[Rfam]
RNA sequence: CUGCAGCUUAUUAAGCCGACUAGACAGGUUGUUUGUACUUGUGUGGUGUGCAAAGGCUGCAGACAGCAAGUCUUUGGUUUGUGUAUGAGCCCAGCUGUGCAGUGCUGGGCCCUUGAAGGGACCACUGAGACAUAA
Numbered sequence: 001c002u003g004c005a006g007c008u009u010a011u012u013a014a015g016c017c018g019a020c021u022a023g024a025c026a027g028g029u030u031g032u033u034u035g036u037a038c039u040u041g042u043g044u045g046g047u048g049u050g051c052a053a054a055g056g057c058u059g060c061a062g063a064c065a066g067c068a069a070g071u072c073u074u075u076g077g078u079u080u081g082u083g084u085a086u087g088a089g090c091c092c093a094g095c096u097g098u099g100c101a102g103u104g105c106u107g108g109g110c111c112c113u114u115g116a117a118g119g120g121a122c123c124a125c126u127g128a129g130a131c132a133u134a135a
Base pairs, nucleotide, nucleotide: 002052003051004050005049019047020046021045022044025041026040027039028038076123077122078121089110090109091108092107093106
The record is a 135-nucleotide sequence from Carassius auratus, which matches "Small nucleolar RNA SNORA70" in Rfam. NCBI's taxonomy places the organism under Eukaryota, Eumetazoa, Deuterostomia, Teleostei, Carassius. By type it is an H/ACA-box small nucleolar RNA. Gene Ontology terms of the family: nucleolus and RNA processing. The family has 43 seed sequences and 5,173 matches in Rfam 15.1.